[Rfam]
RNA: Small nucleolar RNA SNORD11B
RNA sequence: UAAUGGCAGUGAUGAUUCUGACACUGAUUGCUUUCCUGAUGUACAAACAUGAGGGUUGCACAGUCACUACCUCAUCUGAGCCAUCU
Numbered sequence: 001u002a003a004u005g006g007c008a009g010u011g012a013u014g015a016u017u018c019u020g021a022c023a024c025u026g027a028u029u030g031c032u033u034u035c036c037u038g039a040u041g042u043a044c045a046a047a048c049a050u051g052a053g054g055g056u057u058g059c060a061c062a063g064u065c066a067c068u069a070c071c072u073c074a075u076c077u078g079a080g081c082c083a084u085c086u
Stems, first nucleotide, its partner, number of pairs: 003084005